The record is a 378-nucleotide sequence from Meyerozyma sp. JA9, which matches "RNase MRP" in Rfam. The family's consensus secondary structure is taken from published work. The source organism's lineage runs through Eukaryota, Dikarya, Saccharomycotina, Pichiomycetes and Meyerozyma. By type it is a ribozyme.

RNA sequence: GUUCAUGGCCAAAGAUUUGUUUUCGAAGCUUACAAAAGGACUUUCGGGUCGUCAGUGCUUUGGGGAAAGUCUCCUGCCUAAACGCGGAAACGCAGUGGUCCCAUCAGACCAUUUGAACCAUUUCACAAUUGUGGAGGCGGACAACCCUUUACAACAUUAUGGUGAAUAUUAACGGUUUCGUUGUGUCUAUUUUCAAAAUAGCUCUGAUAUUGACCAUUUUGUCUCGUAUGGGACUCAGUUUUUCGACAAGCUGUGCAAUUGUGGAUGGUUCAUUUCCCAUUUAUGGUGGUUAUUCGGCAAUGGGACGGUGAAUCCUAAACGAUAGUUAUAACAAAUGGUCUACGGCCAACCCAAUGGAGCUCACUCUUGGCCCAUGAA
Numbered sequence: 001g002u003u004c005a006u007g008g009c010c011a012a013a014g015a016u017u018u019g020u021u022u023u024c025g026a027a028g029c030u031u032a033c034a035a036a037a038g039g040a041c042u043u044u045c046g047g048g049u050c051g052u053c054a055g056u057g058c059u060u061u062g063g064g065g066a067a068a069g070u071c072u073c074c075u076g077c078c079u080a081a082a083c084g085c086g087g088a089a090a091c092g093c094a095g096u097g098g099u100c101c102c103a104u105c106a107g108a109c110c111a112u113u114u115g116a117a118c119c120a121u122u123u124c125a126c127a128a129u130u131g132u133g134g135a136g137g138c139g140g141a142c143a144a145c146c147c148u149u150u151a152c153a154a155c156a157u158u159a160u161g162g163u164g165a166a167u168a169u170u171a172a173c174g175g176u177u178u179c180g181u182u183g184u185g186u187c188u189a190u191u192u193u194c195a196a197a198a199u200a201g202c203u204c205u206g207a208u209a210u211u212g213a214c215c216a217u218u219u220u221g222u223c224u225c226g227u228a229u230g231g232g233a234c235u236c237a238g239u240u241u242u243u244c245g246a247c248a249a250g251c252u253g254u255g256c257a258a259u260u261g262u263g264g265a266u267g268g269u270u271c272a273u274u275u276c277c278c279a280u281u282u283a284u285g286g287u288g289g290u291u292a293u294u295c296g297g298c299a300a301u302g303g304g305a306c307g308g309u310g311a312a313u314c315c316u317a318a319a320c321g322a323u324a325g326u327u328a329u330a331a332c333a334a335a336u337g338g339u340c341u342a343c344g345g346c347c348a349a350c351c352c353a354a355u356g357g358a359g360c361u362c363a364c365u366c367u368u369g370g371c372c373c374a375u376g377a378a
Base pairs, nucleotide, nucleotide: 002378003377004376005375006374008371009370010369011368012367015336016335017334018333019332020331023063024062025061026060027059028058029057039050040049041048042047068361069360071359072358073357074356084093085092086091095112096111097110098109099108100107271307273305277303278302279301280300281299284296285295286294338346339345340344